The record is a 71-nucleotide RNA from Subtercola lobariae, which matches "DUF3800-IX RNA" in Rfam. The organism belongs to Subtercola, within Bacteria. By type it is a small RNA. Actinobacteria, Firmicutes (1 example), Nitrospirae, Proteobacteria, Verrucomicrobia (1 example).
RNA sequence: GACCCGUUGUCUGAAUAGUCUCCGUAUGGUGUGUGCGUGCCUCACAAAUAGGCUAAGACAACGGGUCGCCC
Numbered sequence: 001g002a003c004c005c006g007u008u009g010u011c012u013g014a015a016u017a018g019u020c021u022c023c024g025u026a027u028g029g030u031g032u033g034u035g036c037g038u039g040c041c042u043c044a045c046a047a048a049u050a051g052g053c054u055a056a057g058a059c060a061a062c063g064g065g066u067c068g069c070c071c
Base pairs, nucleotide, nucleotide: 001067002066003065004064005063006062007061009059010058011057012056018036019035020031022029023028039053040052041051042050